Notes: The family of this 110-nucleotide sequence from Gavia stellata is "U5 spliceosomal RNA". The family has 180 seed sequences and 28,527 matches in Rfam 15.1. For this family Rfam cites "Domain analysis of human U5 RNA. Cap trimethylation, protein binding, and spliceosome assembly" (Hinz et al., J Biol Chem, 1996). The family's consensus secondary structure is taken from published work. NCBI's taxonomy places the organism under Eukaryota, Saurischia, Coelurosauria, Neognathae, Gavia. The match comes from Rfam's covariance-model search (42 bits). Rfam describes the family as follows. U5 RNA is a component of both types of known spliceosome.
RNA sequence: AUACUCUAAUUCCAUUCUUACGUAUCUUUUGCCUUUUAGUGAAGAUUUCUGAGAGAGGAACACUUAAUGAGUUUCAACCUUGUUUUGUGAAGCUUCAUGCCAGUGAAACU
Numbered sequence: 001a002u003a004c005u006c007u008a009a010u011u012c013c014a015u016u017c018u019u020a021c022g023u024a025u026c027u028u029u030u031g032c033c034u035u036u037u038a039g040u041g042a043a044g045a046u047u048u049c050u051g052a053g054a055g056a057g058g059a060a061c062a063c064u065u066a067a068u069g070a071g072u073u074u075c076a077a078c079c080u081u082g083u084u085u086u087g088u089g090a091a092g093c094u095u096c097a098u099g100c101c102a103g104u105g106a107a108a109c110u
Stems, first nucleotide, its partner, number of pairs: 003072004010060004015055004022048001024046006090110001092109001094107004